[Rfam]
RNA: Mammalian CPEB3 ribozyme
Organism: Alligator sinensis
RNA sequence: UCGCAAGUUCAUGGCCACAAGAGAAGCGCUCAGGGCGCAGCUCUGUUAGAUCCUAACGGAUCUGCAGAUUCUGGC
Numbered sequence: 001u002c003g004c005a006a007g008u009u010c011a012u013g014g015c016c017a018c019a020a021g022a023g024a025a026g027c028g029c030u031c032a033g034g035g036c037g038c039a040g041c042u043c044u045g046u047u048a049g050a051u052c053c054u055a056a057c058g059g060a061u062c063u064g065c066a067g068a069u070u071c072u073g074g075c
Base pairs, nucleotide, nucleotide: 013043014041015040022072023071024070025069026038027037028036047064048063049062050061051060052059053058